[Rfam]
RNA sequence: AGGUGCAAGUUUAAGGCCAAAGCAGAAGCGCUCAUGGCAUGGUCCUGUCAGAAUCCAAAGAAUCUGAGAAUUCUGCU
Numbered sequence: 001a002g003g004u005g006c007a008a009g010u011u012u013a014a015g016g017c018c019a020a021a022g023c024a025g026a027a028g029c030g031c032u033c034a035u036g037g038c039a040u041g042g043u044c045c046u047g048u049c050a051g052a053a054u055c056c057a058a059a060g061a062a063u064c065u066g067a068g069a070a071u072u073c074u075g076c077u
Base pairs, nucleotide, nucleotide: 015044016043017042018041021077022076023075024074025073026072027071028040030038049066050065051064052063054061055060
RNA: Mammalian CPEB3 ribozyme